A member of the RNA family "nqrA-Marinomonas RNA" from Marinomonas posidonica, 133 nucleotides long. Rfam's curators put it in the seed alignment. The family's RNA type in Rfam is small RNA.

RNA sequence: AUCAUUAUAAUACGUCGGUUUUUAGGUGAAGUGAGUUUGUGUUUUUAGCUGUCUUUACGUUAGCUAGACGCUUGUACAUGCUUUCCCGGAGGGGGGUGCAAGCAAUGACACAUAACGCUUUUGUGUUCAAUUU
Number, nucleotide and partner (000 for none) at each position: 001a000002u000003c000004a000005u000006u000007a000008u000009a127010a126011u125012a124013c123014g000015u000016c000017g000018g000019u000020u000021u000022u000023u000024a000025g000026g000027u000028g121029a120030a119031g118032u117033g116034a000035g000036u000037u000038u112039g111040u110041g109042u108043u000044u000045u000046u066047a065048g064049c063050u062051g061052u000053c059054u000055u000056u000057a000058c000059g053060u000061u051062a050063g049064c048065u047066a046067g000068a000069c000070g103071c102072u101073u100074g099075u098076a097077c096078a000079u000080g000081c000082u000083u000084u095085c094086c093087c092088g000089g000090a000091g000092g087093g086094g085095g084096g077097u076098g075099c074100a073101a072102g071103c070104a000105a000106u000107g000108a042109c041110a040111c039112a038113u000114a000115a000116c033117g032118c031119u030120u029121u028122u000123g013124u012125g011126u010127u009128c000129a000130a000131u000132u000133u000